Rfam assigns this 91-nucleotide RNA sequence from Prunus armeniaca to the family "Small nucleolar RNA snoR26". Rfam classes the family as a C/D-box small nucleolar RNA. Rfam links the family to the GO terms RNA processing and nucleolus. On this family, see Brown et al., RNA 2001: "Multiple snoRNA gene clusters from Arabidopsis". Rfam 15.1 lists 611 matches to the family in 220 species.
RNA sequence: CGAGCAUCGAUGAUGAUUUUCUUUAAUCGUUAUCCUUGCACUAUGAUUGCCUGUGAAGAAAACCACGGGGAAGUUAUAUUCUGAGAUGCUU
Number, nucleotide and partner (000 for none) at each position: 001c000002g091003a090004g089005c088006a087007u086008c085009g000010a000011u000012g000013a000014u000015g000016a000017u000018u000019u000020u000021c000022u000023u000024u000025a000026a000027u000028c000029g000030u000031u000032a000033u000034c000035c000036u000037u000038g000039c000040a000041c000042u000043a000044u000045g000046a000047u000048u000049g000050c000051c000052u000053g000054u000055g000056a000057a000058g000059a000060a000061a000062a000063c000064c000065a000066c000067g000068g000069g000070g000071a000072a000073g000074u000075u000076a000077u000078a000079u000080u000081c000082u000083g000084a000085g008086a007087u006088g005089c004090u003091u002